About this RNA: Shown here is an 83-nucleotide sequence, a member of the family "Twister_sister_ribozyme". Rfam's curators put it in the seed alignment.
RNA sequence: GUAUCGCGCUAGGUCCAGUCCCGUGUAAGCCGGGACCAGUGGGAGAGAAUGAGUUCUCCCACUGCGACGCUCUAAGGAUACUA
Numbered sequence: 001g002u003a004u005c006g007c008g009c010u011a012g013g014u015c016c017a018g019u020c021c022c023g024u025g026u027a028a029g030c031c032g033g034g035a036c037c038a039g040u041g042g043g044a045g046a047g048a049a050u051g052a053g054u055u056c057u058c059c060c061a062c063u064g065c066g067a068c069g070c071u072c073u074a075a076g077g078a079u080a081c082u083a
Base pairs, nucleotide, nucleotide: 004078005077013068014067015066016029018036020034021033022032037064038063039062040061041060042059043058044057045056046055047054
The literature on the family includes a 2015 paper in Nat Chem Biol by Weinberg et al., "New classes of self-cleaving ribozymes revealed by comparative genomics analysis".